MAT2A 3'UTR stem loop F: a 66-nucleotide RNA sequence from Diceros bicornis.
On this family, see Parker et al., Genome Res 2011: "New families of human regulatory RNA structures identified by comparative analysis of vertebrate genomes".
RNA sequence: CAUGGAGAAAGCUGACUUGGCUGGGGUGCCACAGAGAAGCCAGUUUAUUUACAUGCUUAUUCCAUG
Number, nucleotide and partner (000 for none) at each position: 001c066002a065003u064004g063005g062006a061007g060008a000009a058010a057011g056012c055013u000014g049015a048016c000017u000018u000019g045020g044021c043022u042023g041024g040025g000026g032027u031028g000029c000030c000031a027032c026033a000034g000035a000036g000037a000038a000039g000040c024041c023042a022043g021044u020045u019046u000047a000048u015049u014050u000051a000052c000053a000054u000055g012056c011057u010058u009059a000060u007061u006062c005063c004064a003065u002066g001

The family's RNA type in Rfam is cis-regulatory element. A search with the family's covariance model found it, with a score of 76 bits. The family has 26 seed sequences and 403 matches in Rfam 15.1.